Shown here is a 204-nucleotide RNA sequence from Cavia porcellus, a member of the family "Small nucleolar RNA SNORA73 family". From the family's description: U17 (SNORA73A and SNORA73B) also known as E1 belongs to the H/ACA class of small nucleolar RNAs (snoRNAs).
RNA sequence: CCAACGUGGAUACCCGAGAGGUCACUCUCCCCAGGCUCUUUCCAGGUAGUGUAGAGGAGCACAGGCCUCUGCCCCCUGAUGUACAGUUCCCUUUCCACAACGUUGGAGAAGAAGCUGGGUCUUGUGUCUGCGCCUGAAUAUUCUAACAACUUCUCAGAGUCCUUUGGGCAGUGACUGAGGAGAUAAACCAUGCAGGAAACAAUG
Number, nucleotide and partner (000 for none) at each position: 001c106002c105003a104004a103005c102006g101007u100008g043009g042010a041011u000012a039013c000014c035015c034016g000017a028018g027019a026020g025021g000022u000023c000024a000025c020026u019027c018028u017029c000030c000031c000032c000033a000034g015035g014036c000037u000038c000039u012040u000041u010042c009043c008044a000045g000046g098047u097048a000049g095050u000051g000052u000053a000054g000055a000056g090057g089058a088059g084060c000061a082062c081063a080064g077065g076066c000067c000068u000069c000070u000071g000072c000073c000074c000075c000076c065077u064078g000079a000080u063081g062082u061083a000084c059085a000086g000087u000088u058089c057090c056091c000092u000093u000094u000095c049096c000097a047098c046099a000100a007101c006102g005103u004104u003105g002106g001107a000108g000109a000110a000111g000112a000113a000114g000115c000116u000117g000118g000119g000120u000121c000122u000123u000124g000125u000126g000127u000128c000129u000130g000131c000132g000133c196134c195135u194136g193137a000138a191139u190140a000141u000142u000143c000144u000145a000146a000147c000148a000149a000150c182151u181152u180153c179154u178155c177156a000157g000158a000159g169160u168161c167162c166163u000164u000165u000166g162167g161168g160169c159170a000171g000172u000173g000174a000175c000176u000177g155178a154179g153180g152181a151182g150183a000184u000185a000186a000187a000188c000189c000190a139191u138192g000193c136194a135195g134196g133197a000198a000199a000200c000201a000202a000203u000204g000
The base pairs follow the family's consensus structure, which is taken from published work. The source organism's lineage runs through Eukaryota, Opisthokonta, Gnathostomata, Sarcopterygii and Cavia. A reference for the family is Enright et al. (1996), "5'ETS rRNA processing facilitated by four small RNAs: U14, E3, U17, and U3", RNA.